[Rfam]
RNA sequence: GUAGAAUUGUCGUGUGUCGAUGAUUUCGUUUGAGGUAUGUUAACUCUGCCGAUGAAACUGUCGCCGUUAGGCAAUCCUCUCUUCACCCAAAUUCGGCUUUUUAGAACCAAGCCAAUAGUGUGACGGCUACUCGGAU
Numbered sequence: 001g002u003a004g005a006a007u008u009g010u011c012g013u014g015u016g017u018c019g020a021u022g023a024u025u026u027c028g029u030u031u032g033a034g035g036u037a038u039g040u041u042a043a044c045u046c047u048g049c050c051g052a053u054g055a056a057a058c059u060g061u062c063g064c065c066g067u068u069a070g071g072c073a074a075u076c077c078u079c080u081c082u083u084c085a086c087c088c089a090a091a092u093u094c095g096g097c098u099u100u101u102u103a104g105a106a107c108c109a110a111g112c113c114a115a116u117a118g119u120g121u122g123a124c125g126g127c128u129a130c131u132c133g134g135a136u
Stems, first nucleotide, its partner, number of pairs: 003078002006075005018063005024057004034050004093110001095108002098105002
RNA: purD RNA motif
Organism: Sulfurimonas autotrophica